[Rfam]
RNA sequence: CCUGCCCCUAGAGGCAUUGCAGAUGUGGCUGCUGUGUCACAUGUGGCUGAGAGAAGAGAGACUAUGUCUAUACUCAGUGUUCUGGCCUAACGAACAUCUAAAUGGUUAGUAGCCCAACUUU
Numbered sequence: 001c002c003u004g005c006c007c008c009u010a011g012a013g014g015c016a017u018u019g020c021a022g023a024u025g026u027g028g029c030u031g032c033u034g035u036g037u038c039a040c041a042u043g044u045g046g047c048u049g050a051g052a053g054a055a056g057a058g059a060g061a062c063u064a065u066g067u068c069u070a071u072a073c074u075c076a077g078u079g080u081u082c083u084g085g086c087c088u089a090a091c092g093a094a095c096a097u098c099u100a101a102a103u104g105g106u107u108a109g110u111a112g113c114c115c116a117a118c119u120u121u
Stems, first nucleotide, its partner, number of pairs: 002049001004047003007043001009041001011040001013038003019035004025029001056118001060114001062112004071104002074101001076099002078096005
Background
Small nucleolar RNA SNORA17: a 121-nucleotide RNA sequence from Mus spicilegus. Lineage of the source: Eukaryota > Chordata > Sarcopterygii > Boreoeutheria > Mus. It is annotated as an H/ACA-box small nucleolar RNA. Rfam describes the family as follows. snoRNA ACA 17 belongs to the H/ACA family of snoRNAs and is predicted to guide pseudouridylation of the 28S rRNA at positions U4659 and U4598. The family's consensus secondary structure was predicted with RNAalifold. For this family Rfam cites "Mapping to nucleotide resolution of pseudouridine residues in large subunit ribosomal RNAs from representative eukaryotes, prokaryotes, archaebacteria, mitochondria and chloroplasts" (Ofengand and Bakin, J Mol Biol, 1997).